RNA: tRNA
RNA sequence: GCCGGAUUAGCACAGUGGUAGUGCAGCGGUUUUGUAAACCGAAGGUCGCGGGUUCGAAUCCUGCAUCCGGCA
Numbered sequence: 001g002c003c004g005g006a007u008u009a010g011c012a013c014a015g016u017g018g019u020a021g022u023g024c025a026g027c028g029g030u031u032u033u034g035u036a037a038a039c040c041g042a043a044g045g046u047c048g049c050g051g052g053u054u055c056g057a058a059u060c061c062u063g064c065a066u067c068c069g070g071c072a
Base pairs, nucleotide, nucleotide: 001071002070003069004068005067006066007065010024011023012022013021027041028040029039030038048064049063050062051061052060